[Rfam]
A member of the RNA family "Bacterial large subunit ribosomal RNA" from Dehalococcoides mccartyi, 582 nucleotides of a longer RNA.
RNA sequence: CCCGCGACUGGACAAAAAGACCCCGUGGAGCUUUACUAUAACUUGCCAUUGAGUCUGGGUUUAUCAUGUGUAGGAUAGGUGGGAGGCUGAGAAGCCAGGGCGCUAGCCUUGGUGGAGCCAACGUUGAAAUACCACUCUUGAUGGAUCUAGCCUCUAACUCUAGAACAAGCUAGUGGACAGUGGCUGGUGGAUAGUUUGACUGGGGCGGUCGCCUCCUAAAUUGUAACGGAGGCGCCCAAAGGUUCCCUCAGGGUGGAUGGAAAUCACCCUAAGAGUGCAUUGGCAUAAGGGAGCUUGACUGCGAGACAUACAAGUCGAGCAGGGACGAAAGUCGGGCAAAGUGAUCCUACGGCACCGAGUGGAAGGGCCGUGGCUUAUCGGAUAAAAGCUACCCCGGGGAUAACAGGCUUAUCUUGCCCAAGAGUUCACAUCGACGGCAAGGUUUGGCACCUCUAUGUCGGCUCGUCGCAUCCUGGGGCUGGAGUAGGUCCCAAGGGUCCGGCUGUUCGCCGGUUAAAGCGGCACGCGAGCUGGGUUCAGACCGUCGUGAGACAGGUCGGUCUCUAUCCGUCGUGGGCGUCU
Numbered sequence: 001c002c003c004g005c006g007a008c009u010g011g012a013c014a015a016a017a018a019g020a021c022c023c024c025g026u027g028g029a030g031c032u033u034u035a036c037u038a039u040a041a042c043u044u045g046c047c048a049u050u051g052a053g054u055c056u057g058g059g060u061u062u063a064u065c066a067u068g069u070g071u072a073g074g075a076u077a078g079g080u081g082g083g084a085g086g087c088u089g090a091g092a093a094g095c096c097a098g099g100g101c102g103c104u105a106g107c108c109u110u111g112g113u114g115g116a117g118c119c120a121a122c123g124u125u126g127a128a129a130u131a132c133c134a135c136u137c138u139u140g141a142u143g144g145a146u147c148u149a150g151c152c153u154c155u156a157a158c159u160c161u162a163g164a165a166c167a168a169g170c171u172a173g174u175g176g177a178c179a180g181u182g183g184c185u186g187g188u189g190g191a192u193a194g195u196u197u198g199a200c201u202g203g204g205g206c207g208g209u210c211g212c213c214u215c216c217u218a219a220a221u222u223g224u225a226a227c228g229g230a231g232g233c234g235c236c237c238a239a240a241g242g243u244u245c246c247c248u249c250a251g252g253g254u255g256g257a258u259g260g261a262a263a264u265c266a267c268c269c270u271a272a273g274a275g276u277g278c279a280u281u282g283g284c285a286u287a288a289g290g291g292a293g294c295u296u297g298a299c300u301g302c303g304a305g306a307c308a309u310a311c312a313a314g315u316c317g318a319g320c321a322g323g324g325a326c327g328a329a330a331g332u333c334g335g336g337c338a339a340a341g342u343g344a345u346c347c348u349a350c351g352g353c354a355c356c357g358a359g360u361g362g363a364a365g366g367g368c369c370g371u372g373g374c375u376u377a378u379c380g381g382a383u384a385a386a387a388g389c390u391a392c393c394c395c396g397g398g399g400a401u402a403a404c405a406g407g408c409u410u411a412u413c414u415u416g417c418c419c420a421a422g423a424g425u426u427c428a429c430a431u432c433g434a435c436g437g438c439a440a441g442g443u444u445u446g447g448c449a450c451c452u453c454u455a456u457g458u459c460g461g462c463u464c465g466u467c468g469c470a471u472c473c474u475g476g477g478g479c480u481g482g483a484g485u486a487g488g489u490c491c492c493a494a495g496g497g498u499c500c501g502g503c504u505g506u507u508c509g510c511c512g513g514u515u516a517a518a519g520c521g522g523c524a525c526g527c528g529a530g531c532u533g534g535g536u537u538c539a540g541a542c543c544g545u546c547g548u549g550a551g552a553c554a555g556g557u558c559g560g561u562c563u564c565u566a567u568c569c570g571u572c573g574u575g576g577g578c579g580u581c582u
Stems, first nucleotide, its partner, number of pairs: 001577008010569003015563001022398004027394002029390005035195004042187002045184004051154003055150012068137001078136005085119003094113008158175001160173004198210004211233006234379001236336002242294006248274002251269006275284002299322004305316003324333003347373007355366002407448003411445001412442007422432002459534001460532004464526001465523005472497002475492006499513005540558004544553003
Annotation
Its family is annotated with ribosome and structural constituent of ribosome in the Gene Ontology. The organism belongs to Dehalococcoides mccartyi, within Bacteria. The family's consensus secondary structure is taken from published work.